The family of this 138-nucleotide RNA from Solibacillus silvestris is "FMN riboswitch aptamer (RFN element)".
A search with the family's covariance model found it, with a score of 110 bits.
NCBI's taxonomy places the organism under Bacteria, Bacillati, Caryophanaceae, Solibacillus, Solibacillus silvestris.
Pairs were carried over by alignment from the consensus structure, which is taken from published work.

[Rfam]
RNA sequence: AAUUUCCUUCGGGGUCGGGUGAAAUUCCCAAUCGACGGUGAUGAGUUAAUCUCUAAGCCCGUGAGCCACUUUUUUGUGUGCAGGAUUUUGGUGCAAAUCCAAAGCCGACAGUUAUAGUCUGGAUGGGAGAAGGAAUGG
Numbered sequence: 001a002a003u004u005u006c007c008u009u010c011g012g013g014g015u016c017g018g019g020u021g022a023a024a025u026u027c028c029c030a031a032u033c034g035a036c037g038g039u040g041a042u043g044a045g046u047u048a049a050u051c052u053c054u055a056a057g058c059c060c061g062u063g064a065g066c067c068a069c070u071u072u073u074u075u076g077u078g079u080g081c082a083g084g085a086u087u088u089u090g091g092u093g094c095a096a097a098u099c100c101a102a103a104g105c106c107g108a109c110a111g112u113u114a115u116a117g118u119c120u121g122g123a124u125g126g127g128a129g130a131a132g133g134a135a136u137g138g
Stems, first nucleotide, its partner, number of pairs: 004135007017029003031118002033107002035062004057105002066084002087103005109121003